[Rfam]
RNA sequence: AAUAAAAAAACCCCGCAGGAUUUCCUGCAGGGUCCUUCUAUACCUUAAAGGUUUCUUUAAAGUAAGAAGGCAAAGGGAGAGGAGAAACCGGAGGAAGAACUUAUGGGGAAACGUAAGUCUUCUCCGCGG
Numbered sequence: 001a002a003u004a005a006a007a008a009a010a011c012c013c014c015g016c017a018g019g020a021u022u023u024c025c026u027g028c029a030g031g032g033u034c035c036u037u038c039u040a041u042a043c044c045u046u047a048a049a050g051g052u053u054u055c056u057u058u059a060a061a062g063u064a065a066g067a068a069g070g071c072a073a074a075g076g077g078a079g080a081g082g083a084g085a086a087a088c089c090g091g092a093g094g095a096a097g098a099a100c101u102u103a104u105g106g107g108g109a110a111a112c113g114u115a116a117g118u119c120u121u122c123u124c125c126g127c128g129g
Stems, first nucleotide, its partner, number of pairs: 011032003015028005033077005042063002045060006089126004094122004099118005

About this RNA:
The record is a 129-nucleotide RNA sequence from Metabacillus arenae, which matches "ylbH leader" in Rfam. The family's RNA type in Rfam is cis-regulatory leader. This family is a putative regulatory RNA structure that is found upstream of the ylbH gene in B. subtilis and related low GC Gram-positive bacteria. A reference for the family is Barrick et al. (2004), "New RNA motifs suggest an expanded scope for riboswitches in bacterial genetic control", Proc Natl Acad Sci U S A. It scores 105 bits against the family's covariance model.